[Rfam]
RNA sequence: AAUCAGUUUUGAAAAAUAACCAAAUAGGAGCAUCUAGAGACCUUCUAGUCUUUGGAGUGAAUGAUUUAUAUUUGUUUCUGAGA
Numbered sequence: 001a002a003u004c005a006g007u008u009u010u011g012a013a014a015a016a017u018a019a020c021c022a023a024a025u026a027g028g029a030g031c032a033u034c035u036a037g038a039g040a041c042c043u044u045c046u047a048g049u050c051u052u053u054g055g056a057g058u059g060a061a062u063g064a065u066u067u068a069u070a071u072u073u074g075u076u077u078c079u080g081a082g083a
Stems, first nucleotide, its partner, number of pairs: 031059003038051004
RNA: Small nucleolar RNA U2-19